[Rfam]
RNA sequence: AGAGCUUAGCUAAUCGGUGAGCAUUGAUCCCUUAAGAAAACUGUUCACAGUGGCUAAGUUCAGU
Numbered sequence: 001a002g003a004g005c006u007u008a009g010c011u012a013a014u015c016g017g018u019g020a021g022c023a024u025u026g027a028u029c030c031c032u033u034a035a036g037a038a039a040a041c042u043g044u045u046c047a048c049a050g051u052g053g054c055u056a057a058g059u060u061c062a063g064u
Stems, first nucleotide, its partner, number of pairs: 002061010017048007